Source information
T-box leader: a 207-nucleotide sequence from Flavonifractor sp. An306. Pairs were carried over by alignment from the consensus structure, which is taken from published work. The source organism's lineage runs through Bacteria, Bacillati, Clostridia, Oscillospiraceae and Flavonifractor. The family's RNA type in Rfam is cis-regulatory leader.

RNA sequence: GAUAAGGCUGUGAACGGGAGAAGUACCCCCUGUUUUCCGCAUCAGAGAGGAGCCGGACGGUGCAAGGCUCCGGCGGAGCGGGAGGGAAGGCGCCUGUGAGCCGCGGGGAGGAAAUGCCCCGCCGGUACCCGCCGUUACCGGGAAGGGAGUGCGUACCAGCCAGGUACGAAUUCAGGUGGAACCACGGACAAUUUGUUCGCCCUGAGC
Numbered sequence: 001g002a003u004a005a006g007g008c009u010g011u012g013a014a015c016g017g018g019a020g021a022a023g024u025a026c027c028c029c030c031u032g033u034u035u036u037c038c039g040c041a042u043c044a045g046a047g048a049g050g051a052g053c054c055g056g057a058c059g060g061u062g063c064a065a066g067g068c069u070c071c072g073g074c075g076g077a078g079c080g081g082g083a084g085g086g087a088a089g090g091c092g093c094c095u096g097u098g099a100g101c102c103g104c105g106g107g108g109a110g111g112a113a114a115u116g117c118c119c120c121g122c123c124g125g126u127a128c129c130c131g132c133c134g135u136u137a138c139c140g141g142g143a144a145g146g147g148a149g150u151g152c153g154u155a156c157c158a159g160c161c162a163g164g165u166a167c168g169a170a171u172u173c174a175g176g177u178g179g180a181a182c183c184a185c186g187g188a189c190a191a192u193u194u195g196u197u198c199g200c201c202c203u204g205a206g207c
Stems, first nucleotide, its partner, number of pairs: 007101002015096004026085002029082003038075003049071006104121005110115001123134003152168006173204004185199004